[Rfam]
RNA sequence: ACCGCCACGGACGGCGGUGGUUCCAAACAGAAACGAUGUUUUAAAGCAAGACUGUUUGCAAAGCUUUAAAACUCGUGGGUUAGUUUUUGCCAAGGACGGCAAAAACUAACCUGGA
Dot-bracket structure: ((((((......))))))...............(((.((((((((((...............)))))))))))))..((((((((((((((......))))))))))))))....